This 355-nucleotide part of an RNA from Thauera linaloolentis belongs to the Rfam family "Bacterial small subunit ribosomal RNA".
The source organism's lineage runs through Bacteria, Rhodocyclales, Zoogloeaceae, Thauera and Thauera linaloolentis.

[Rfam]
RNA sequence: GGCGUAAAGCGUGCGCAGGCGGUUUGCCAAGACAGGCGUGAAAUCCCCGGGCUUAACCUGGGAACUGCGCUUGUGACUGGCAGGCUAGAGUACGGCAGAGGGGGGUGGAAUUCCACGUGUAGCAGUGAAAUGCGUAGAGAUGUGGAGGAACACCGAUGGCGAAGGCAGCCCCCUGGGCCUGUACUGACGCUCAUGCACGAAAGCGUGGGGAGCAAACAGGAUUAGAUACCCUGGUAGUCCACGCCCUAAACGAUGUCGACUAGUCGUUCGGAGCAGCAAUGCACUGAGUGACGCAGCUAACGCGUGAAGUCGACCGCCUGGGGAGUACGGCCGCAAGGUUAAAACUCAAAGGAAU
Numbered sequence: 001g002g003c004g005u006a007a008a009g010c011g012u013g014c015g016c017a018g019g020c021g022g023u024u025u026g027c028c029a030a031g032a033c034a035g036g037c038g039u040g041a042a043a044u045c046c047c048c049g050g051g052c053u054u055a056a057c058c059u060g061g062g063a064a065c066u067g068c069g070c071u072u073g074u075g076a077c078u079g080g081c082a083g084g085c086u087a088g089a090g091u092a093c094g095g096c097a098g099a100g101g102g103g104g105g106u107g108g109a110a111u112u113c114c115a116c117g118u119g120u121a122g123c124a125g126u127g128a129a130a131u132g133c134g135u136a137g138a139g140a141u142g143u144g145g146a147g148g149a150a151c152a153c154c155g156a157u158g159g160c161g162a163a164g165g166c167a168g169c170c171c172c173c174u175g176g177g178c179c180u181g182u183a184c185u186g187a188c189g190c191u192c193a194u195g196c197a198c199g200a201a202a203g204c205g206u207g208g209g210g211a212g213c214a215a216a217c218a219g220g221a222u223u224a225g226a227u228a229c230c231c232u233g234g235u236a237g238u239c240c241a242c243g244c245c246c247u248a249a250a251c252g253a254u255g256u257c258g259a260c261u262a263g264u265c266g267u268u269c270g271g272a273g274c275a276g277c278a279a280u281g282c283a284c285u286g287a288g289u290g291a292c293g294c295a296g297c298u299a300a301c302g303c304g305u306g307a308a309g310u311c312g313a314c315c316g317c318c319u320g321g322g323g324a325g326u327a328c329g330g331c332c333g334c335a336a337g338g339u340u341a342a343a344a345c346u347c348a349a350a351g352g353a354a355u
Stems, first nucleotide, its partner, number of pairs: 001318003009315001011198004018191003022085007030078002032074009046062006089185003094179003100174007107151001111147008122133003159166002203244006212238002217233004255314006263292009273282002296303002320347003329340004